mir-24 microRNA precursor family: a 67-nucleotide RNA from Pleuronectes platessa. Gene Ontology terms of the family: RISC complex and miRNA-mediated post-transcriptional gene silencing. Rfam describes the family as follows. This family represents the microRNA (miRNA) mir-24 family. miRNAs are transcribed as ~70nt precursors (modelled here) and subsequently processed by the Dicer enzyme to give a ~22nt product. In this case the mature sequence comes from the 3' arm of the precursor. The extents of the hairpin precursors are not generally known and are estimated based on hairpin prediction. The products are thought to have regulatory roles through complementarity to mRNA. The involvement of Dicer in miRNA processing suggests a relationship with the phenomenon of RNA interference. miRNAs are numbered based on the sequence of the mature RNA. miR-24 has been identified in human and mouse.

RNA sequence: CCCUCCUGUGCCUCCUGAGCUGACAGCAGUUUGAUCCCACACUGGCUCAGUUCAGCAGGAACAGGAG
Number, nucleotide and partner (000 for none) at each position: 001c000002c000003c067004u066005c065006c064007u000008g062009u061010g000011c059012c058013u057014c000015c055016u054017g053018a052019g051020c050021u049022g048023a047024c000025a000026g000027c044028a043029g042030u041031u000032u000033g000034a000035u000036c000037c000038c000039a000040c000041a030042c029043u028044g027045g000046c000047u023048c022049a021050g020051u019052u018053c017054a016055g015056c000057a013058g012059g011060a000061a009062c008063a000064g006065g005066a004067g003